[Rfam]
RNA: sul1 RNA
RNA sequence: CUUGGAUCCCGGUUUCAUCCCGGGUGGCUAUUCCGGCCGCCAAUCCGCCGGAGCGAC
Number, nucleotide and partner (000 for none) at each position: 001c000002u000003u000004g000005g000006a025007u024008c000009c023010c022011g021012g020013u000014u000015u000016c000017a000018u000019c000020c012021c011022g010023g009024g007025u006026g000027g000028c000029u000030a000031u000032u052033c051034c050035g049036g048037c047038c000039g000040c000041c000042a000043a000044u000045c000046c000047g037048c036049c035050g034051g033052a032053g000054c000055g000056a000057c000